RNA sequence: AUGUGAUUAUAUUCAGCACACACACACACACACACACACACACUGGAGCUUGGUGGAGACAGGUGUGUGUGUGUGUGUGUGUGUGGAGGCACAAU
Numbered sequence: 001a002u003g004u005g006a007u008u009a010u011a012u013u014c015a016g017c018a019c020a021c022a023c024a025c026a027c028a029c030a031c032a033c034a035c036a037c038a039c040a041c042a043c044u045g046g047a048g049c050u051u052g053g054u055g056g057a058g059a060c061a062g063g064u065g066u067g068u069g070u071g072u073g074u075g076u077g078u079g080u081g082u083g084u085g086g087a088g089g090c091a092c093a094a095u
Stems, first nucleotide, its partner, number of pairs: 023085008035073009048064005
This 95-nucleotide RNA sequence belongs to the Rfam family "t44 RNA".
It scores 50 bits against the family's covariance model.
The family's consensus secondary structure was predicted with LocARNA.